[Rfam]
RNA sequence: CUAUUAGUUAAAUAAAUCCGCACAUGAUUCGUCACGUUUAACUGGGUGCUUGAUAGCUUUUGUCUUGAUGGUUGUUAAAUGGGGGUCGUGGAGGUUCAAC
Numbered sequence: 001c002u003a004u005u006a007g008u009u010a011a012a013u014a015a016a017u018c019c020g021c022a023c024a025u026g027a028u029u030c031g032u033c034a035c036g037u038u039u040a041a042c043u044g045g046g047u048g049c050u051u052g053a054u055a056g057c058u059u060u061u062g063u064c065u066u067g068a069u070g071g072u073u074g075u076u077a078a079a080u081g082g083g084g085g086u087c088g089u090g091g092a093g094g095u096u097c098a099a100c
Stems, first nucleotide, its partner, number of pairs: 023090008035081008048072003
Source information
Shown here is a 100-nucleotide RNA from Oleiphilus sp. HI0066, a member of the family "t44 RNA". It is annotated as a small RNA. Pairs were carried over by alignment from the consensus structure, which was predicted with LocARNA.